[Rfam]
RNA sequence: AGAGGUUGCAAGUUCAAGGCCACAGCAGAAGCACUCACAACACAGCCCUCUCAGAUUCCAAAGAAUCUGUGAAGUUUGCU
Dot-bracket structure: .................[[[...((((((.(...........).]]]....(((((((....))))))).....))))))
A member of the RNA family "Mammalian CPEB3 ribozyme" from Alligator mississippiensis, 80 nucleotides long. The mammalian CPEB3 ribozyme is a self cleaving RNA located in the second intron of the CPEB3 gene which belongs to a family of genes regulating messenger RNA polyadenylation. The match comes from Rfam's covariance-model search (39 bits). The organism belongs to Alligator, within Eukaryota.